Rfam assigns this 105-nucleotide RNA to the family "mraW RNA". Rfam 15.1 lists 851 matches to the family in 821 species. The family's consensus secondary structure is taken from published work.

[Rfam]
RNA sequence: CUUCACAGUGCGUGUAAGGACUCUGCCCGAGGUGGAUGCUCUGGUGUACUUCCCCGAUAUCAGAAACCUGCCUCGGACAGGGCUCUAUACGCACUUUCUUUAUAA
Numbered sequence: 001c002u003u004c005a006c007a008g009u010g011c012g013u014g015u016a017a018g019g020a021c022u023c024u025g026c027c028c029g030a031g032g033u034g035g036a037u038g039c040u041c042u043g044g045u046g047u048a049c050u051u052c053c054c055c056g057a058u059a060u061c062a063g064a065a066a067c068c069u070g071c072c073u074c075g076g077a078c079a080g081g082g083c084u085c086u087a088u089a090c091g092c093a094c095u096u097u098c099u100u101u102a103u104a105a
Base pairs, nucleotide, nucleotide: 010092011091012090013089014088015087016086018085019084021082022081023080024079025078027076028075029074030073031072032071033070034069035068037066040064041063042062043061044060045059046058047057